[Rfam]
RNA sequence: GGAUAAAAUUGAUGUAAGUCACUCUGGAUAAGAGCAUCUGCUAAAUGCCAAUAA
Numbered sequence: 001g002g003a004u005a006a007a008a009u010u011g012a013u014g015u016a017a018g019u020c021a022c023u024c025u026g027g028a029u030a031a032g033a034g035c036a037u038c039u040g041c042u043a044a045a046u047g048c049c050a051a052u053a054a
Stems, first nucleotide, its partner, number of pairs: 013043001014041003022034004
This 54-nucleotide RNA sequence from Megalops atlanticus belongs to the Rfam family "UnaL2 LINE 3' element". The organism belongs to Megalops, within Eukaryota. Rfam links the family to the GO term transposition, RNA-mediated.